[Rfam]
RNA sequence: GCCACGGACCGGGCCCCUCUGGCGAGCAAAUGCUCGUGAUGUCGGACGUAUCG
Numbered sequence: 001g002c003c004a005c006g007g008a009c010c011g012g013g014c015c016c017c018u019c020u021g022g023c024g025a026g027c028a029a030a031u032g033c034u035c036g037u038g039a040u041g042u043c044g045g046a047c048g049u050a051u052c053g
Base pairs, nucleotide, nucleotide: 006047009045010044011043012042022037023036024035025034026033027032